[Rfam]
The record is a 118-nucleotide RNA from Gossypium aridum, which matches "mir-399 microRNA precursor family" in Rfam. A reference for the family is Jones-Rhoades and Bartel (2004), "Computational Identification of Plant MicroRNAs and Their Targets, Including a Stress-Induced miRNA", Mol Cell.

RNA sequence: AGAAGAAUAACGGUGCAAUUCUCCUUUGGCAGAUGAAAUAGUGCACAUUGCACACUUUGUAAUAGAAAAAAAUGUAGUGCAAUCAUCCGCCAAAGGAGAAUUGCCCUGCUAUUCAACU
Numbered sequence: 001a002g003a004a005g006a007a008u009a010a011c012g013g014u015g016c017a018a019u020u021c022u023c024c025u026u027u028g029g030c031a032g033a034u035g036a037a038a039u040a041g042u043g044c045a046c047a048u049u050g051c052a053c054a055c056u057u058u059g060u061a062a063u064a065g066a067a068a069a070a071a072a073u074g075u076a077g078u079g080c081a082a083u084c085a086u087c088c089g090c091c092a093a094a095g096g097a098g099a100a101u102u103g104c105c106c107u108g109c110u111a112u113u114c115a116a117c118u
Stems, first nucleotide, its partner, number of pairs: 005114005011108003015104005021098004027092004032087004
It scores 75 bits against the family's covariance model. Pairs were carried over by alignment from the consensus structure, which was predicted with PFOLD.